RNA: Glycine riboswitch aptamer
Nucleotides: 128
Stems, first nucleotide, its partner, number of pairs: 008121006020043006045107003048103002052101003058095002
Number, partner (000 for none) and nucleotide at each position: 001000c002000u003000u004000u005000c006000g007000a008121u009120c010119u011118c012117u013116g014000g015000a016000g017000a018000g019000c020043g021042g022041c023040g024039g025038c026000g027000g028000c029000g030000a031000u032000c033000a034000g035000c036000c037000g038025g039024c040023u041022g042021c043020c044000c045107a046106c047105c048103g049102a050000a051000g052101g053100g054099g055000c056000g057000c058095g059094c060000g061000a062000g063000g064000c065000u066000c067000g068000g069000u070000a071000g072000c073000c074000a075000c076000c077000c078000g079000u080000u081000g082000g083000c084000a085000a086000c087000c088000c089000g090000c091000c092000g093000c094059g095058c096000a097000a098000u099054c100053u101052c102049u103048c104000a105047g106046g107045u108000a109000c110000c111000g112000a113000g114000g115000a116013c117012a118011g119010a120009g121008g122000g123000g124000u125000c126000a127000u128000c